[Rfam]
RNA sequence: UAACGGGUGAAAGACCUGUCAUGGUAAAAGCCAGAAGCCAUGUAGCCAGGAUGGCAGGGGGUGAGGGAAACGUUACCUUCUGAAGCCCAUCGACAAAGGCCGCUCUAAGGCGGGUGAGCAACUCUCCGGGUUGUAACGAAU
Numbered sequence: 001u002a003a004c005g006g007g008u009g010a011a012a013g014a015c016c017u018g019u020c021a022u023g024g025u026a027a028a029a030g031c032c033a034g035a036a037g038c039c040a041u042g043u044a045g046c047c048a049g050g051a052u053g054g055c056a057g058g059g060g061g062u063g064a065g066g067g068a069a070a071c072g073u074u075a076c077c078u079u080c081u082g083a084a085g086c087c088c089a090u091c092g093a094c095a096a097a098g099g100c101c102g103c104u105c106u107a108a109g110g111c112g113g114g115u116g117a118g119c120a121a122c123u124c125u126c127c128g129g130g131u132u133g134u135a136a137c138g139a140a141u
Stems, first nucleotide, its partner, number of pairs: 020042005050091005055082006064073001066071001098115001100113004118134003